This 117-nucleotide RNA sequence from Cavia porcellus belongs to the Rfam family "Small nucleolar RNA SNORA11". Pairs were carried over by alignment from the consensus structure, which was predicted with RNAalifold. The family has 35 seed sequences and 2,014 matches in Rfam 15.1.
[Rfam]
RNA sequence: GGGGUGUGCUCAAAGCAGGUGGCUUCUCUAUUUACAACACAGCCAACAGGAAUCCUGGGUCAUUGUGACCAGGGACACAAAACUUAUGACUUCCUUUUGAGCAAACAUCCUACACAU
Dot-bracket structure: .((.((((....(((.(((.(...).))).)))....)))).))............((((...(((..(..(((.((.((...)).)).)))......).)))...)))).......
Numbered sequence: 001g002g003g004g005u006g007u008g009c010u011c012a013a014a015g016c017a018g019g020u021g022g023c024u025u026c027u028c029u030a031u032u033u034a035c036a037a038c039a040c041a042g043c044c045a046a047c048a049g050g051a052a053u054c055c056u057g058g059g060u061c062a063u064u065g066u067g068a069c070c071a072g073g074g075a076c077a078c079a080a081a082a083c084u085u086a087u088g089a090c091u092u093c094c095u096u097u098u099g100a101g102c103a104a105a106c107a108u109c110c111u112a113c114a115c116a117u
Stems, first nucleotide, its partner, number of pairs: 002044002005041004013033003017029003021025001057110004064103003069099001072092003076088002079085002